Record summary
The record is a 137-nucleotide sequence from Albula goreensis, which matches "Small nucleolar RNA SNORA57" in Rfam.
Nucleotides: 137
Stems, first nucleotide, its partner, number of pairs: 001058005015045006022038001024037003070129005089111006096105001
Number, partner (000 for none) and nucleotide at each position: 001058c002057c003056u004055c005054c006000u007000u008000u009000u010000c011000u012000u013000g014000g015045c016044a017043u018042a019041c020040a021000c022038g023000c024037u025036g026035u027000u028000g029000g030000u031000c032000a033000g034000u035026a036025c037024a038022c039000g040020u041019g042018u043017g044016u045015g046000u047000a048000a049000u050000g051000u052000c053000c054005g055004g056003a057002g058001g059000a060000a061000c062000a063000g064000u065000a066000a067000a068000g069000c070129c071128a072127g073126u074125g075000c076000u077000a078000u079000g080000u081000c082000u083000u084000c085000g086000g087000u088000a089111u090110c091109a092108g093107c094106a095000u096105g097000u098000c099000a100000a101000a102000u103000g104000u105096c106094u107093g108092c109091u110090g111089a112000u113000c114000c115000u116000a117000u118000c119000c120000u121000c122000a123000a124000u125074c126073a127072u128071u129070g130000g131000c132000a133000c134000a135000c136000c137000u
About this RNA:
The match comes from Rfam's covariance-model search (100 bits). It is annotated as an H/ACA-box small nucleolar RNA. U99 belongs to the H/ACA class of snoRNAs which are thought to guide the sites of modification of uridines to pseudouridines, the target for this family is unknown. The base pairs follow the family's consensus structure, which was predicted with PFOLD. NCBI's taxonomy places the organism under Eukaryota, Deuterostomia, Elopocephala, Albuliformes, Albula. Its family is annotated with nucleolus and RNA processing in the Gene Ontology.